[Rfam]
RNA: U4 spliceosomal RNA
Organism: Drosophila willistoni
RNA sequence: AUCUUUGCGCAGCGGCAAUUUCGUAACCAAUGAAGGCAACUGAGGUGCGAAUAUUGCUAGUUGAAAACUUUAACCAAUACCCCGCCCAGGGGACGUGAAAUACCGUCCACUAAGGCAAUUUUUGGAAGCCCGAGAGGGC
Numbered sequence: 001a002u003c004u005u006u007g008c009g010c011a012g013c014g015g016c017a018a019u020u021u022c023g024u025a026a027c028c029a030a031u032g033a034a035g036g037c038a039a040c041u042g043a044g045g046u047g048c049g050a051a052u053a054u055u056g057c058u059a060g061u062u063g064a065a066a067a068c069u070u071u072a073a074c075c076a077a078u079a080c081c082c083c084g085c086c087c088a089g090g091g092g093a094c095g096u097g098a099a100a101u102a103c104c105g106u107c108c109a110c111u112a113a114g115g116c117a118a119u120u121u122u123u124g125g126a127a128g129c130c131c132g133a134g135a136g137g138g139c
Base pairs, nucleotide, nucleotide: 020051021050022049023048024047026046027045028044034041035040084116085115086114088111089110091108092107093106094105095103096102128139129138130137131136